[Rfam]
RNA sequence: CGCCCCAAGGAGCGCUGCAGCAGGCCACCAGCAAGGAAUCGGUUCGUGAUUUCAGGUGGCCGGUCAGGCUUGGGGUGGGUGCCAGCACGCUUUUUGGCAGUGUUCCGGCCCGCACGAUGACAACGGCGCUCACCUGUU
Numbered sequence: 001c002g003c004c005c006c007a008a009g010g011a012g013c014g015c016u017g018c019a020g021c022a023g024g025c026c027a028c029c030a031g032c033a034a035g036g037a038a039u040c041g042g043u044u045c046g047u048g049a050u051u052u053c054a055g056g057u058g059g060c061c062g063g064u065c066a067g068g069c070u071u072g073g074g075g076u077g078g079g080u081g082c083c084a085g086c087a088c089g090c091u092u093u094u095u096g097g098c099a100g101u102g103u104u105c106c107g108g109c110c111c112g113c114a115c116g117a118u119g120a121c122a123a124c125g126g127c128g129c130u131c132a133c134c135u136g137u138u
Base pairs, nucleotide, nucleotide: 002076003075004074005073006072007071008070021063023061024060025059026058027057028056029055
Dot-bracket structure: .(((((((............(.(((((((.........................))))))).)......)))))))..............................................................